[Rfam]
The record is an 80-nucleotide RNA from Flavobacterium psychrophilum, which matches "Flavo-1 RNA" in Rfam. Taxonomically the source falls in Flavobacterium psychrophilum (Bacteria, Pseudomonadati, Bacteroidota, Flavobacteriia). By type it is a small RNA.
RNA sequence: CCCUAGCCCCGAUAGUAGUGAAAAUCCUUUUUUGAGGCUUUUCGCCGAAAAAAAGAUUGAAACGAAUAGCGGGAUUAGCU
Numbered sequence: 001c002c003c004u005a006g007c008c009c010c011g012a013u014a015g016u017a018g019u020g021a022a023a024a025u026c027c028u029u030u031u032u033u034g035a036g037g038c039u040u041u042u043c044g045c046c047g048a049a050a051a052a053a054a055g056a057u058u059g060a061a062a063c064g065a066a067u068a069g070c071g072g073g074a075u076u077a078g079c080u
Stems, first nucleotide, its partner, number of pairs: 009072003013068002018063002023058004029053005036046003
Overview:
It is one of the family's seed sequences.